[Rfam]
Nucleotides: 179
Stems, first nucleotide, its partner, number of pairs: 007173005017084005024077002034068006088116003091112008117144002121140004127134001147163006
Number, partner (000 for none) and nucleotide at each position: 001000a002000g003000a004000u005000g006000a007173g008172g009171u010170a011169g012000a013000g014000g015000u016000c017084g018083c019082g020081a021080a022000g023000a024077g025076u026000a027000a028000u029000a030000g031000u032000a033000c034068u035067u036066u037065g038064a039063u040000g041000g042000a043000g044000a045000g046000u047000c048000a049000g050000g051000g052000a053000a054000c055000u056000c057000g058000a059000u060000g061000a062000g063039g064038u065037c066036a067035a068034a069000c070000g071000a072000a073000a074000g075000g076025a077024c078000g079000a080021u081020u082019c083018g084017c085000c086000g087000a088116a089115g090114c091112g092111c093110u094109g095108u096107a097106a098105u099000u100000c101000u102000c103000u104000g105098g106097u107096u108095a109094u110093a111092g112091c113000a114090g115089c116088u117144g118143g119000g120000a121140c122139u123138g124137u125000u126000a127134c128000c129000g130000a131000a132000u133000a134127g135000g136000u137124g138123c139122a140121g141000g142000a143118c144117u145000g146000u147163c148162a149161u150160a151159g152158u153000g154000u155000u156000a157000a158152g159151c160150u161149a162148u163147g164000u165000u166000g167000a168000a169011c170010u171009a172008u173007c174000c175000c176000u177000u178000u179000u